This 118-nucleotide RNA sequence belongs to the Rfam family "Plastid-psbA-1 3UTR RNA". Rfam classes the family as a cis-regulatory element. It is one of the family's seed sequences. Its Rfam clan is "Plastid-psbA 3UTR RNA clan". From the family's description: Plastid psbA-1 is a non-coding RNA (ncRNA) present in plastids.
RNA sequence: UUGAAGUUCCAUAUCUUAAUGGAUAAGGUUUUUCUCCUAAACAUAUAGGAAUUUUUGAAGGAAGGAAAGCCGGAAAUACCCAAUAUCUUGUUCCAACAGGAUAUUGGGUAUUUCUUUG
Numbered sequence: 001u002u003g004a005a006g007u008u009c010c011a012u013a014u015c016u017u018a019a020u021g022g023a024u025a026a027g028g029u030u031u032u033u034c035u036c037c038u039a040a041a042c043a044u045a046u047a048g049g050a051a052u053u054u055u056u057g058a059a060g061g062a063a064g065g066a067a068a069g070c071c072g073g074a075a076a077u078a079c080c081c082a083a084u085a086u087c088u089u090g091u092u093c094c095a096a097c098a099g100g101a102u103a104u105u106g107g108g109u110a111u112u113u114c115u116u117u118g
Stems, first nucleotide, its partner, number of pairs: 008023005062117002067115001073114007081106003085102005